Shown here is a 60-nucleotide RNA sequence from Phyllostomus discolor, a member of the family "Selenocysteine insertion sequence 1". It is annotated as a cis-regulatory element. Gene Ontology term of the family: selenocysteine incorporation. The literature on the family includes a 1996 paper in RNA by Walczak et al., "A novel RNA structural motif in the selenocysteine insertion element of eukaryotic selenoprotein mRNAs".
RNA sequence: GCUGCCCCAUGACGGCUGGGUCUGAAACCCUGGAUGGACCCAGUUCGAUGUCUUCGCAGU
Numbered sequence: 001g002c003u004g005c006c007c008c009a010u011g012a013c014g015g016c017u018g019g020g021u022c023u024g025a026a027a028c029c030c031u032g033g034a035u036g037g038a039c040c041c042a043g044u045u046c047g048a049u050g051u052c053u054u055c056g057c058a059g060u
Base pairs, nucleotide, nucleotide: 001060002059003058004057005056014045015044016043017042018041019040020039021038022037023036029033